[Rfam]
RNA sequence: CCCCGUGAACUGGGGGGAUACGGCUCCCCCUCCAGAUCCGGCGACGGCUUUUGGCCGUUGACAAAUUCAACCUAAGGAG
Numbered sequence: 001c002c003c004c005g006u007g008a009a010c011u012g013g014g015g016g017g018a019u020a021c022g023g024c025u026c027c028c029c030c031u032c033c034a035g036a037u038c039c040g041g042c043g044a045c046g047g048c049u050u051u052u053g054g055c056c057g058u059u060g061a062c063a064a065a066u067u068c069a070a071c072c073u074a075a076g077g078a079g
Base pairs, nucleotide, nucleotide: 003041004040005039007038008037010035011034012033013032014031015030016029017028
The family of this 79-nucleotide sequence is "L20-Deltaproteobacteria ribosomal protein leader". The family's RNA type in Rfam is cis-regulatory leader. Rfam's curators put it in the seed alignment.